A member of the RNA family "CRISPR RNA direct repeat element" from Plasticicumulans acidivorans, 36 nucleotides long. Lineage of the source: Bacteria > Pseudomonadati > Pseudomonadota > Candidatus Competibacteraceae > Plasticicumulans. Gene Ontology term of the family: defense response.
RNA sequence: GUUAUCCGCGGCGUAAUGCCGCGGCCUUAUUGAAGC
Numbered sequence: 001g002u003u004a005u006c007c008g009c010g011g012c013g014u015a016a017u018g019c020c021g022c023g024g025c026c027u028u029a030u031u032g033a034a035g036c
Stems, first nucleotide, its partner, number of pairs: 006024007